[Rfam]
RNA sequence: CAACCGCCGUUUGCUCCCCUCCCCUCUCGGCUACCGGACUGGCGGGCUUC
Numbered sequence: 001c002a003a004c005c006g007c008c009g010u011u012u013g014c015u016c017c018c019c020u021c022c023c024c025u026c027u028c029g030g031c032u033a034c035c036g037g038a039c040u041g042g043c044g045g046g047c048u049u050c
Stems, first nucleotide, its partner, number of pairs: 007045004013039001015038003023030002

Xanthomonadaceae sRNA sX5: a 50-nucleotide sequence from Pseudoxanthomonas sp. On this family, see Schmidtke et al., Nucleic Acids Res 2011: "Genome-wide transcriptome analysis of the plant pathogen Xanthomonas identifies sRNAs with putative virulence functions".